[Rfam]
RNA: Hepatitis C virus J7880 RNA
Organism: Orthohepacivirus hominis
RNA sequence: GCAAAGGUCAAGGCGUCUACUGUGAAGGCAGACAUGCUCUCCGUGGAGGAAGCGUGCGACCUGACGCCCCCCCAUUCAGCCAAAUCUAAAUUUGGCUACGGGGCGAAAGACGUCCGCAACCAU
Numbered sequence: 001g002c003a004a005a006g007g008u009c010a011a012g013g014c015g016u017c018u019a020c021u022g023u024g025a026a027g028g029c030a031g032a033c034a035u036g037c038u039c040u041c042c043g044u045g046g047a048g049g050a051a052g053c054g055u056g057c058g059a060c061c062u063g064a065c066g067c068c069c070c071c072c073c074a075u076u077c078a079g080c081c082a083a084a085u086c087u088a089a090a091u092u093u094g095g096c097u098a099c100g101g102g103g104c105g106a107a108a109g110a111c112g113u114c115c116g117c118a119a120c121c122a123u
Stems, first nucleotide, its partner, number of pairs: 006120001008118001012114007022065002025062001028057002035050001037048003068103004074097001076095002078092002